[Rfam]
RNA sequence: CCAAUGUGGAUAUCCCAGGAGGUCACUCUCCCCAGGCUCUGUCCUAGUGGUAUAGGGGAGCAUAGGGCUCUGCCCCAUGAUGUACAGUCCCUUUCCACAACUUUGGAGAUGAAGCUGGGCUUCAAGUCUGUGCCUGCAUAUUCCUAUGACUUCUCAGAGUCCUCUCGAUGAUGACUGGGGAGACAAACCAUGCAGGAAAUAGUC
Number, nucleotide and partner (000 for none) at each position: 001c106002c105003a104004a103005u000006g101007u100008g044009g043010a042011u041012a040013u000014c036015c035016c000017a000018g029019g028020a027021g026022g000023u000024c000025a000026c021027u020028c019029u018030c000031c000032c000033c000034a000035g015036g014037c000038u000039c000040u012041g011042u010043c009044c008045u000046a000047g098048u097049g096050g095051u000052a000053u000054a000055g000056g091057g090058g089059a088060g085061c000062a083063u082064a081065g078066g000067g000068c000069u000070c000071u000072g000073c000074c000075c000076c000077a000078u065079g000080a000081u064082g063083u062084a000085c060086a000087g000088u059089c058090c057091c056092u000093u000094u000095c050096c049097a048098c047099a000100a007101c006102u000103u004104u003105g002106g001107a000108g000109a000110u000111g000112a000113a000114g000115c000116u000117g000118g000119g000120c000121u000122u000123c000124a000125a000126g000127u000128c000129u000130g000131u000132g000133c196134c195135u194136g193137c192138a191139u190140a000141u000142u000143c000144c000145u000146a000147u000148g000149a000150c182151u181152u180153c179154u178155c177156a000157g000158a000159g169160u168161c167162c000163u000164c000165u000166c000167g161168a160169u159170g000171a000172u000173g000174a000175c000176u000177g155178g154179g153180g152181a151182g150183a000184c000185a000186a000187a000188c000189c000190a139191u138192g137193c136194a135195g134196g133197a000198a000199a000200u000201a000202g000203u000204c000
Description:
The family of this 204-nucleotide sequence from Nannospalax galili is "Small nucleolar RNA SNORA73 family". It scores 185 bits against the family's covariance model. Gene Ontology terms of the family: RNA processing and nucleolus. Rfam classes the family as an H/ACA-box small nucleolar RNA. The organism belongs to Nannospalax, within Eukaryota. About the family: U17 (SNORA73A and SNORA73B) also known as E1 belongs to the H/ACA class of small nucleolar RNAs (snoRNAs). Vertebrate U17 is intron-encoded and ranges in length from 200-230 nucleotides, longer than most snoRNAs. It is one of the most abundant snoRNAs in human cells and is essential for the cleavage of pre-rRNA within the 5' external transcribed spacer (ETS). This cleavage leads to the formation of 18S rRNA. Regions of the U17 RNA are complementary to rRNA and act as guides for RNA/RNA interactions, although these regions do not seem to be well conserved between organisms. For this family Rfam cites "5'ETS rRNA processing facilitated by four small RNAs: U14, E3, U17, and U3" (Enright et al., RNA, 1996).